[Rfam]
RNA sequence: GCACCACCACCACAUAAGGCAAAAGGGGGCAGGGACGGGGGACCCACAGUUGGUCCGCUCCGCGUCACCCGGUUCGGGUGGCGUUGUGGAGAGCUCCUUGGGGUGAAGCCACGCUCCGUGGCCGGGCAACCUUCCCGCCCGAACCCGACAGCUAACCUCGCAGGCGUGCCGGAGGGAUAUC
Number, nucleotide and partner (000 for none) at each position: 001g000002c000003a000004c034005c033006a000007c000008c000009a000010c000011c000012a000013c000014a000015u000016a000017a000018g000019g000020c000021a000022a000023a000024a000025g000026g000027g000028g000029g000030c000031a000032g000033g005034g004035a000036c160037g159038g158039g157040g156041g000042a000043c000044c000045c100046a099047c000048a000049g000050u000051u000052g000053g000054u000055c000056c000057g000058c000059u000060c000061c000062g000063c000064g000065u000066c000067a000068c000069c000070c000071g000072g000073u000074u000075c000076g000077g000078g000079u000080g000081g000082c000083g000084u000085u000086g000087u000088g000089g000090a000091g000092a000093g000094c000095u000096c000097c000098u000099u046100g045101g146102g145103g144104u000105g000106a000107a000108g000109c121110c120111a119112c118113g000114c000115u000116c000117c000118g112119u111120g110121g109122c000123c000124g140125g139126g138127c137128a000129a000130c000131c000132u000133u000134c000135c000136c000137g127138c126139c125140c124141g000142a000143a000144c103145c102146c101147g000148a000149c000150a000151g000152c000153u000154a000155a000156c040157c039158u038159c037160g036161c000162a000163g000164g000165c000166g000167u000168g000169c000170c000171g000172g000173a000174g000175g000176g000177a000178u000179a000180u000181c000
Description
Rfam assigns this 181-nucleotide sequence from Actinoplanes sp. TBRC 11911 to the family "c-di-AMP riboswitch aptamer (ydaO/yuaA leader)". Its family is annotated with cyclic-di-AMP binding and regulation of gene expression in the Gene Ontology. Pairs were carried over by alignment from the consensus structure.